[Rfam]
RNA sequence: GUGGAGAAUCUGUAAAGCUCAGGAGGGAUAGCACCAUGGAUGAUCAUAUUAUUAUAGCUUCUGUUUAAUUUUCACGAGCUUUUUGAUCAUCUGCAGCGCUAUCCAUCCUGAGUUUCAUGGCUUCUCCAU
Numbered sequence: 001g002u003g004g005a006g007a008a009u010c011u012g013u014a015a016a017g018c019u020c021a022g023g024a025g026g027g028a029u030a031g032c033a034c035c036a037u038g039g040a041u042g043a044u045c046a047u048a049u050u051a052u053u054a055u056a057g058c059u060u061c062u063g064u065u066u067a068a069u070u071u072u073c074a075c076g077a078g079c080u081u082u083u084u085g086a087u088c089a090u091c092u093g094c095a096g097c098g099c100u101a102u103c104c105a106u107c108c109u110g111a112g113u114u115u116c117a118u119g120g121c122u123u124c125u126c127c128a129u
Base pairs, nucleotide, nucleotide: 010120016114017113018112019111020110021109022108023107024106026104027103028102029101030100031099032098034096